[Rfam]
RNA sequence: GUCCACUCGGCGGCGGACCAGAGCCAUAGGCCUGCAAAGGCCGUGGCUGCAGCCGGCCCACAAGGCGUCACCAUGACGGCCAGGCCGGCUGC
Numbered sequence: 001g002u003c004c005a006c007u008c009g010g011c012g013g014c015g016g017a018c019c020a021g022a023g024c025c026a027u028a029g030g031c032c033u034g035c036a037a038a039g040g041c042c043g044u045g046g047c048u049g050c051a052g053c054c055g056g057c058c059c060a061c062a063a064g065g066c067g068u069c070a071c072c073a074u075g076a077c078g079g080c081c082a083g084g085c086c087g088g089c090u091g092c
Stems, first nucleotide, its partner, number of pairs: 001018004023047004031039001049092010064081003
RNA: Rhizobiales sRNA Atu_Ti1
Organism: Rhizobium subbaraonis